Shown here is a 44-nucleotide RNA sequence from Aeromicrobium camelliae, a member of the family "L31-Actinobacteria ribosomal protein leader". Pairs were carried over by alignment from the consensus structure, which is taken from published work. Rfam classes the family as a cis-regulatory leader. A search with the family's covariance model found it, with a score of 44 bits. NCBI's taxonomy places the organism under Bacteria, Actinomycetota, Actinomycetes, Nocardioidaceae, Aeromicrobium.
[Rfam]
RNA sequence: UUGGUUCUGGUUCACGGACUGCGCCGUGGUCCGACCCAGCGACC
Numbered sequence: 001u002u003g004g005u006u007c008u009g010g011u012u013c014a015c016g017g018a019c020u021g022c023g024c025c026g027u028g029g030u031c032c033g034a035c036c037c038a039g040c041g042a043c044c
Stems, first nucleotide, its partner, number of pairs: 003044003007039004015033008